[Rfam]
A member of the RNA family "Bacterial RNase P class A" from Stappia indica, 397 nucleotides long.
The base pairs follow the family's consensus structure, which is taken from published work.
By type it is a ribozyme.
Its family is annotated with ribonuclease P activity, dimeric ribonuclease P complex and tRNA processing in the Gene Ontology.
RNA sequence: UCAGCCGGCUGGACGGCCGCUCCUGCAAGUGCGGAAACGCCGCAGGGGAGGAAAGUCCGGGCUCCACGGAAAAACGGUGCCGGGUAACGCCCGGCGGGGGCGACCCCAGGGAAAGUGCCACAGAAAGCAAACCGCCGCGGCUGCGGCCGCGGUAAGGGUGAAAGGGUGGGGUAAGAGCCCACCGCGCGACCGGCAACGGAAGCGGCACGGUAAACCCCACCGGGAGCAAAACCGAAUAGGGGCGGCGCGGGUUCCGCAAGGGAUCCGGUCCUUUCCAGACCAGCCGCCCGGGUUGGUUGCGCGAGGCGUCCGGCAACGGGCGUCCCAGAUGAAUGGCCGUCACGUGCGGCAGCAAUGCCGCGCCAUACAAAACCCGGCUUACAGGCCGGCUGACAUU
Numbered sequence: 001u002c003a004g005c006c007g008g009c010u011g012g013a014c015g016g017c018c019g020c021u022c023c024u025g026c027a028a029g030u031g032c033g034g035a036a037a038c039g040c041c042g043c044a045g046g047g048g049a050g051g052a053a054a055g056u057c058c059g060g061g062c063u064c065c066a067c068g069g070a071a072a073a074a075c076g077g078u079g080c081c082g083g084g085u086a087a088c089g090c091c092c093g094g095c096g097g098g099g100g101c102g103a104c105c106c107c108a109g110g111g112a113a114a115g116u117g118c119c120a121c122a123g124a125a126a127g128c129a130a131a132c133c134g135c136c137g138c139g140g141c142u143g144c145g146g147c148c149g150c151g152g153u154a155a156g157g158g159u160g161a162a163a164g165g166g167u168g169g170g171g172u173a174a175g176a177g178c179c180c181a182c183c184g185c186g187c188g189a190c191c192g193g194c195a196a197c198g199g200a201a202g203c204g205g206c207a208c209g210g211u212a213a214a215c216c217c218c219a220c221c222g223g224g225a226g227c228a229a230a231a232c233c234g235a236a237u238a239g240g241g242g243c244g245g246c247g248c249g250g251g252u253u254c255c256g257c258a259a260g261g262g263a264u265c266c267g268g269u270c271c272u273u274u275c276c277a278g279a280c281c282a283g284c285c286g287c288c289c290g291g292g293u294u295g296g297u298u299g300c301g302c303g304a305g306g307c308g309u310c311c312g313g314c315a316a317c318g319g320g321c322g323u324c325c326c327a328g329a330u331g332a333a334u335g336g337c338c339g340u341c342a343c344g345u346g347c348g349g350c351a352g353c354a355a356u357g358c359c360g361c362g363c364c365a366u367a368c369a370a371a372a373c374c375c376g377g378c379u380u381a382c383a384g385g386c387c388g389g390c391u392g393a394c395a396u397u
Stems, first nucleotide, its partner, number of pairs: 001393010011382001012341007020048007053380003057377005062226004072274002075222005080094005095109001096107004110217002115215002117211003132157002134153008165183006184206001185204003190199003230298004240289006267281004305324008